[Rfam]
RNA: Small nucleolar RNA snR60/Z15/Z230/Z193/J17
Organism: Coemansia sp. RSA 990
RNA sequence: AGAAUUAUAUGAUGAGGUUAUAAGGUAUAGUUCAUCCGAGAACGAGCUUUAUGCUUGCUGAGGACUCUAAAUAGCAAUAUAGUCUUUCGCUCCUAUCUGAUUCAAUCUC
Numbered sequence: 001a002g003a004a005u006u007a008u009a010u011g012a013u014g015a016g017g018u019u020a021u022a023a024g025g026u027a028u029a030g031u032u033c034a035u036c037c038g039a040g041a042a043c044g045a046g047c048u049u050u051a052u053g054c055u056u057g058c059u060g061a062g063g064a065c066u067c068u069a070a071a072u073a074g075c076a077a078u079a080u081a082g083u084c085u086u087u088c089g090c091u092c093c094u095a096u097c098u099g100a101u102u103c104a105a106u107c108u109c
Base pairs, nucleotide, nucleotide: 004106005105006104007102